[Rfam]
This 69-nucleotide sequence from Rhodococcus sp. SMB37 belongs to the Rfam family "Transposase-2 RNA". A search with the family's covariance model found it, with a score of 45 bits.
RNA sequence: GAAGCGUCAACUCGGCACCGGAAGUCGCUGGGUGAGACCGGGACUGUCUCGUAGGAAGGUGAGGCUGCC
Numbered sequence: 001g002a003a004g005c006g007u008c009a010a011c012u013c014g015g016c017a018c019c020g021g022a023a024g025u026c027g028c029u030g031g032g033u034g035a036g037a038c039c040g041g042g043a044c045u046g047u048c049u050c051g052u053a054g055g056a057a058g059g060u061g062a063g064g065c066u067g068c069c
Base pairs, nucleotide, nucleotide: 011042012041013040014039015038018031019030020029021028046065047064048063049062050061051060052059